RNA sequence: GGUUUUGAUGACAAACCAAUGUCAUGAAGACAGGUGAUGACAUAAAAAUCAUAUUCAAUGUGAUUAUGCUGAAGCCC
Numbered sequence: 001g002g003u004u005u006u007g008a009u010g011a012c013a014a015a016c017c018a019a020u021g022u023c024a025u026g027a028a029g030a031c032a033g034g035u036g037a038u039g040a041c042a043u044a045a046a047a048a049u050c051a052u053a054u055u056c057a058a059u060g061u062g063a064u065u066a067u068g069c070u071g072a073a074g075c076c077c
Stems, first nucleotide, its partner, number of pairs: 001076003004071001006068002

Rfam assigns this 77-nucleotide sequence from Mesocricetus auratus to the family "Small nucleolar RNA SNORD115". NCBI's taxonomy places the organism under Eukaryota, Deuterostomia, Mammalia, Muroidea, Mesocricetus. Rfam 15.1 lists 3,387 matches to the family in 131 species. The family's RNA type in Rfam is C/D-box small nucleolar RNA. Gene Ontology terms of the family: RNA processing and nucleolus.